Shown here is a 117-nucleotide RNA from Methanosphaerula palustris, a member of the family "S15-Methanomicrobia ribosomal protein leader".
Clan: Ribosomal Protein S15 Leader clan.
It is one of the family's seed sequences.
Lineage of the source: Archaea > Methanobacteriati > Methanobacteriota > Methanomicrobiales > Methanosphaerula palustris.

RNA sequence: AGCACUGUGUGAACGGUGUAAUCAUACGUAAGUCCGACGUGCCGGAUUGCAGUUUUUCUGCAGAUUCCUGAACAAUCAGGGGAUGGCACUGCCCAGAGAUCUGGGCUCAGGGAUUAC
Numbered sequence: 001a002g003c004a005c006u007g008u009g010u011g012a013a014c015g016g017u018g019u020a021a022u023c024a025u026a027c028g029u030a031a032g033u034c035c036g037a038c039g040u041g042c043c044g045g046a047u048u049g050c051a052g053u054u055u056u057u058c059u060g061c062a063g064a065u066u067c068c069u070g071a072a073c074a075a076u077c078a079g080g081g082g083a084u085g086g087c088a089c090u091g092c093c094c095a096g097a098g099a100u101c102u103g104g105g106c107u108c109a110g111g112g113a114u115u116a117c
Base pairs, nucleotide, nucleotide: 002019003018004017005016006015007014008013028117029116030115031114034112035111039089040088041087042086043085091106092105093104094103095102096101